Description:
A member of the RNA family "mir-263 microRNA precursor family" from Dreissena polymorpha, 78 nucleotides long. The family is grouped with related families in Rfam's "mir-182 clan". The match comes from Rfam's covariance-model search (61 bits). The base pairs follow the family's consensus structure, which was predicted with RNAalifold.

RNA sequence: CAUCGCCGUUGAAUGGCACUGGUAGAAUUCACGGGGUUAUUUCAGACCGUGAUUCCCCGGUGCCAUCAAGUGACGAUG
Numbered sequence: 001c002a003u004c005g006c007c008g009u010u011g012a013a014u015g016g017c018a019c020u021g022g023u024a025g026a027a028u029u030c031a032c033g034g035g036g037u038u039a040u041u042u043c044a045g046a047c048c049g050u051g052a053u054u055c056c057c058c059g060g061u062g063c064c065a066u067c068a069a070g071u072g073a074c075g076a077u078g
Base pairs, nucleotide, nucleotide: 003076004075005074007072008071009070010069013066014065015064016063017062018061020059021058022057025055026054027053029052030051031050032049033048034047